[Rfam]
RNA: mir-190 microRNA precursor family
RNA sequence: UUCGUGAGAUAUGUUUGAUAUUCUUGGUUGUUAUAUUUGAAACCGACCGAGAAUCGGACAUAUUUUAC
Numbered sequence: 001u002u003c004g005u006g007a008g009a010u011a012u013g014u015u016u017g018a019u020a021u022u023c024u025u026g027g028u029u030g031u032u033a034u035a036u037u038u039g040a041a042a043c044c045g046a047c048c049g050a051g052a053a054u055c056g057g058a059c060a061u062a063u064u065u066u067a068c
Stems, first nucleotide, its partner, number of pairs: 004068003008064012021051002026048005